RNA sequence: GCGAUGAGCUAUAUUGAAUAAGUCAAUAAACGUUAUUGCGCUAUGUGGAGCGUAGUUUAUUGCCUCAAUACGUAGGACACAUUUUAUGUGUCCC
Numbered sequence: 001g002c003g004a005u006g007a008g009c010u011a012u013a014u015u016g017a018a019u020a021a022g023u024c025a026a027u028a029a030a031c032g033u034u035a036u037u038g039c040g041c042u043a044u045g046u047g048g049a050g051c052g053u054a055g056u057u058u059a060u061u062g063c064c065u066c067a068a069u070a071c072g073u074a075g076g077a078c079a080c081a082u083u084u085u086a087u088g089u090g091u092c093c094c
Stems, first nucleotide, its partner, number of pairs: 014068004024062008037054002040051003075093008

This 94-nucleotide RNA sequence from Niallia circulans belongs to the Rfam family "BsrF". NCBI's taxonomy places the organism under Bacteria, Bacillati, Caryophanales, Bacillaceae, Niallia. By type it is a small RNA. On this family, see Saito et al., Gene 2008: "Novel small RNA-encoding genes in the intergenic regions of Bacillus subtilis". Pairs were carried over by alignment from the consensus structure, which was predicted with WAR. A search with the family's covariance model found it, with a score of 60 bits.